[Rfam]
RNA sequence: GCUCACUCCGAGGGGUGCCCGCAGGGGCUGAGACGGCGAUCGCCGAACCCUUUGAACCUGAUCCGGGUCAUGCCGGCGAAGGAACGGGGCGCCUCUCCCAG
Number, nucleotide and partner (000 for none) at each position: 001g000002c000003u000004c000005a000006c089007u088008c087009c086010g085011a051012g050013g049014g048015g000016u045017g028018c027019c026020c025021g000022c000023a000024g000025g020026g019027g018028c017029u000030g000031a000032g000033a000034c000035g044036g043037c042038g000039a000040u000041c000042g037043c036044c035045g016046a000047a000048c014049c013050c012051u011052u000053u000054g000055a000056a000057c082058c081059u080060g000061a000062u000063c076064c075065g074066g073067g000068u000069c000070a000071u000072g000073c066074c065075g064076g063077c000078g000079a000080a059081g058082g057083a000084a000085c010086g009087g008088g007089g006090c000091g000092c000093c000094u000095c000096u000097c000098c000099c000100a000101g000
This 101-nucleotide RNA from Methylopila sp. Yamaguchi belongs to the Rfam family "TPP riboswitch aptamer (THI element)". The family's consensus secondary structure is taken from published work. Taxonomically the source falls in Methylopila (Bacteria, Pseudomonadati, Pseudomonadota, Alphaproteobacteria).